[Rfam]
RNA sequence: CCUCUUCCAUUUCAGCAGUUGAACUCCUAUAUUCCGGCUGCCGGUUAUCCGGCUAUGGCAAUAAAUGGUCAGCGCAAUAAACCUAUCGGACCCGGGGGCGGUACCCGGCGCCUCCACCCAAGCCCGCAGGAUCUCUGCGGGUUUCGGCGGGGGCGAAAUAGGAUCGACGAGGGCGUAAAGGCUGGACUUUUGCUCGGCAUGGUACCACCGACAUCGGGCCAUCUUAAUAGUUGCAAAUGACAACUAUGCUAUGGACAACGCUGUUGCUGCGUAAUGCAGCACCGGUAGUCCGCAAAGUCCUAGAGGUUUAGCUCUUUAGGCGGGGUUCGGAGGCACCUGGCAACAGAAGCCUCCACU
Dot-bracket structure: .......................................(((((....)))))...(((((.....(.(((((........(((.(((...(((((.......)))))(((((((.................................)))))))............)))))).......))))).)..)))))[[[..(((..((.]]].....)).))).....................................................................................................[[[[..((((((]]]]..........))))))...
The family of this 357-nucleotide RNA from Pseudovibrio exalbescens is "Alphaproteobacteria transfer-messenger RNA". Rfam describes the family as follows. Bacterial tmRNA, also known as 10Sa RNA or SsrA, is named for its dual tRNA and mRNA-like properties. Its role is to liberate the mRNA from a stalled ribosome. To accomplish this part of the tmRNA is used as a reading frame that ends in a translation stop signal. The broken mRNA is replaced in the ribosome by the tmRNA and translation of the tmRNA leads to addition of a proteolysis tag to the incomplete protein enabling recognition by a protease. The source organism's lineage runs through Bacteria, Pseudomonadota, Alphaproteobacteria, Stappiaceae and Pseudovibrio. It scores 304 bits against the family's covariance model. Rfam classes the family as a non-coding RNA gene.